RNA sequence: AAAAAUACCUUGGGGUGUCCAAUUUUUUUGGUCUGAGAUUAAACCCACAGAACCUAGAACAGAUAAUGCUGUUUAGGAAAGGUAAGCGAAUACAAU
Numbered sequence: 001a002a003a004a005a006u007a008c009c010u011u012g013g014g015g016u017g018u019c020c021a022a023u024u025u026u027u028u029u030g031g032u033c034u035g036a037g038a039u040u041a042a043a044c045c046c047a048c049a050g051a052a053c054c055u056a057g058a059a060c061a062g063a064u065a066a067u068g069c070u071g072u073u074u075a076g077g078a079a080a081g082g083u084a085a086g087c088g089a090a091u092a093c094a095a096u
Stems, first nucleotide, its partner, number of pairs: 006084005011047004016041001017033001019031003053077004059072004
Dot-bracket structure: .....(((((((((.((.(((.......))).).......)..)))).....((((..((((......)))).))))..)))))............

Rfam assigns this 96-nucleotide sequence to the family "TPP riboswitch aptamer (THI element)". For this family Rfam cites "Comparative genomics of thiamin biosynthesis in procaryotes. New genes and regulatory mechanisms" (Rodionov et al., J Biol Chem, 2002). Pairs were carried over by alignment from the consensus structure, which is taken from published work. Gene Ontology term of the family: thiamine pyrophosphate binding. Rfam describes the family as follows. Vitamin B(1) in its active form thiamin pyrophosphate (TPP) is an essential coenzyme that is synthesised by coupling of pyrimidine and thiazole moieties in bacteria. The previously detected thiamin-regulatory element, thi box was extended, resulting in a new, highly conserved RNA secondary structure, the THI element, which is widely distributed in eubacteria and also occurs in some archaea. Analysis of operon structures identified a large number of new candidate thiamin-regulated genes, mostly transporters, in various prokaryotic organisms. The THI element is a riboswitch that directly binds to TPP to regulate gene expression through a variety of mechanisms in archaea, bacteria and eukaryotes. through a variety of mechanisms in archaea, bacteria and eukaryotes.